[Rfam]
RNA: Small nucleolar RNA SNORA27
Organism: Balaenoptera musculus
RNA sequence: AAUAAAAUGUGGACUUUUUUUCUGGAUGUUUUGGUUAGCAUUUUUAAAAAAUUUUGUGGCUCAAGUGGGGCAAAGGAAAUACCCUUUUAAAACUCAGGCAAACUGGGUGUUUGUCUUAGAACCUGUCAGAGGAAACAAAU
Numbered sequence: 001a002a003u004a005a006a007a008u009g010u011g012g013a014c015u016u017u018u019u020u021u022c023u024g025g026a027u028g029u030u031u032u033g034g035u036u037a038g039c040a041u042u043u044u045u046a047a048a049a050a051a052u053u054u055u056g057u058g059g060c061u062c063a064a065g066u067g068g069g070g071c072a073a074a075g076g077a078a079a080u081a082c083c084c085u086u087u088u089a090a091a092a093c094u095c096a097g098g099c100a101a102a103c104u105g106g107g108u109g110u111u112u113g114u115c116u117u118a119g120a121a122c123c124u125g126u127c128a129g130a131g132g133a134a135a136c137a138a139a140u
Stems, first nucleotide, its partner, number of pairs: 018072001020070003027063002083132005096116008